[Rfam]
Nucleotides: 130
Stems, first nucleotide, its partner, number of pairs: 004121004009117002018039009042074006049067006076089004094112007122129002
Number, partner (000 for none) and nucleotide at each position: 001000a002000g003000a004121u005120g006119a007118g008000a009117g010116a011000u012000a013000c014000a015000c016000c017000c018039c019038g020037c021036c022035c023034a024033c025032a026031g027000g028000g029000g030000a031026c032025u033024g034023u035022g036021g037020g038019c039018g040000a041000c042074a043073u044072c045071g046070g047069g048000c049067c050066g051065g052064a053063g054062c055000c056000u057000c058000c059000c060000c061000a062054g063053c064052u065051u066050u067049g068000a069047c070046c071045c072044g073043g074042u075000c076089g077088u078087g079086c080000c081000c082000u083000c084000g085000c086079g087078c088077a089076c090000a091000c092000a093000a094112c095111u096110g097109g098108a099107g100106c101000u102000u103000c104000c105000g106100g107099c108098u109097u110096c111095g112094g113000a114000u115000c116010u117009c118007c119006u120005c121004a122129c123128c124000g125000g126000u127000c128123g129122g130000a
Streptomyces RNA 5676: a 130-nucleotide sequence from Streptomyces colonosanans. On this family, see Vockenhuber et al., RNA Biol 2011: "Deep sequencing-based identification of small non-coding RNAs in Streptomyces coelicolor". A search with the family's covariance model found it, with a score of 134 bits. It is annotated as a small RNA. The base pairs follow the family's consensus structure.